[Rfam]
RNA: PreQ1 (pre queuosine) riboswitch aptamer
RNA sequence: AUAAUAGCGGUUCAUCAACCAUCCCGCUUAAAAAAACUAGGAGAUA
Numbered sequence: 001a002u003a004a005u006a007g008c009g010g011u012u013c014a015u016c017a018a019c020c021a022u023c024c025c026g027c028u029u030a031a032a033a034a035a036a037c038u039a040g041g042a043g044a045u046a
Stems, first nucleotide, its partner, number of pairs: 006028005015039001